Rfam assigns this 59-nucleotide sequence from Devosia sp. I507 to the family "terC RNA". The family's RNA type in Rfam is cis-regulatory element. NCBI's taxonomy places the organism under Bacteria, Pseudomonadati, Pseudomonadota, Devosiaceae, Devosia.
RNA sequence: CGGCAGUGCCGGGCCCCUCUGGUCAUAGCUCCUUGCUAUGGCGAUGUCGGAACUGCUCC
Numbered sequence: 001c002g003g004c005a006g007u008g009c010c011g012g013g014c015c016c017c018u019c020u021g022g023u024c025a026u027a028g029c030u031c032c033u034u035g036c037u038a039u040g041g042c043g044a045u046g047u048c049g050g051a052a053c054u055g056c057u058c059c
Stems, first nucleotide, its partner, number of pairs: 006053002009050004022042008
Pairs were carried over by alignment from the consensus structure, which is taken from published work. The match comes from Rfam's covariance-model search (56 bits).